[Rfam]
RNA sequence: UUUUAAACCCGAUUGAAACGAACACGAUCCUGAUGUUAAAUCAGGAGAGUAAAGUGGAAAGCGGGACUAAUG
Numbered sequence: 001u002u003u004u005a006a007a008c009c010c011g012a013u014u015g016a017a018a019c020g021a022a023c024a025c026g027a028u029c030c031u032g033a034u035g036u037u038a039a040a041u042c043a044g045g046a047g048a049g050u051a052a053a054g055u056g057g058a059a060a061g062c063g064g065g066a067c068u069a070a071u072g
Base pairs, nucleotide, nucleotide: 009064010063011062013060014059018055019054024050025049028046029045030044031043032042033041034040